Shown here is a 66-nucleotide RNA from Virgibacillus necropolis, a member of the family "Bacillaceae-1 RNA".
RNA sequence: CCAGAAACAAGGUCGACUAAGUACGCAACGUCCUGUUGCAAAGUCGACACUAGCACGUCCUGUGCG
Dot-bracket structure: ...........((((((.......(((((.....)))))...))))))....((((.....)))).

The base pairs follow the family's consensus structure, which is taken from published work. The family's RNA type in Rfam is small RNA.